[Rfam]
Nucleotides: 081
Stems, first nucleotide, its partner, number of pairs: 002080004
Number, partner (000 for none) and nucleotide at each position: 001000u002080g003079g004078c005077c006000g007000a008000g009000g010000a011000u012000g013000a014000a015000a016000a017000u018000c019000a020000u021000a022000a023000u024000c025000u026000g027000a028000u029000u030000g031000g032000g033000c034000a035000u036000a037000u038000c039000u040000c041000a042000g043000u044000a045000a046000u047000g048000u049000g050000c051000u052000c053000u054000g055000a056000u057000g058000g059000g060000u061000u062000a063000a064000a065000g066000g067000a068000u069000u070000u071000a072000g073000c074000u075000g076000a077005g078004g079003c080002c081000a